[Rfam]
RNA: Small nucleolar RNA Z159/U59
Organism: Cicer arietinum
RNA sequence: GUCUCUAAUGAUGACAUAAACAAAAUAACUUUCGUUCUUCUGAGUUGUCCGUGCGGAAGAUACUUGGAGACCUGAACUGAAGAGAC
Number, nucleotide and partner (000 for none) at each position: 001g000002u000003c084004u083005c082006u081007a000008a000009u000010g000011a000012u000013g000014a000015c000016a000017u000018a000019a000020a000021c000022a000023a000024a000025a000026u000027a000028a000029c000030u000031u000032u000033c000034g000035u000036u000037c000038u000039u000040c000041u000042g000043a000044g000045u000046u000047g000048u000049c000050c000051g000052u000053g000054c000055g000056g000057a000058a000059g000060a000061u000062a000063c000064u000065u000066g000067g000068a000069g000070a000071c000072c000073u000074g000075a000076a000077c000078u000079g000080a000081a006082g005083a004084g003085a000086c000